[Rfam]
RNA: c-di-GMP-I-GGC riboswitch aptamer
RNA sequence: CCAGAUAAGGGUAAACCUGUUGAAAAGCAGGGGCACAAAGUCUCAGAUCUAAGGUAGGAAUACUAAGAUGGCUGGACUGCCUGGG
Numbered sequence: 001c002c003a004g005a006u007a008a009g010g011g012u013a014a015a016c017c018u019g020u021u022g023a024a025a026a027g028c029a030g031g032g033g034c035a036c037a038a039a040g041u042c043u044c045a046g047a048u049c050u051a052a053g054g055u056a057g058g059a060a061u062a063c064u065a066a067g068a069u070g071g072c073u074g075g076a077c078u079g080c081c082u083g084g085g
Stems, first nucleotide, its partner, number of pairs: 001085001003082002011036002016031006034071001039078004044074003047069003
Dot-bracket structure: (.((......((...((((((....))))))..[))..((((.((((((.................))).])))))))..))..)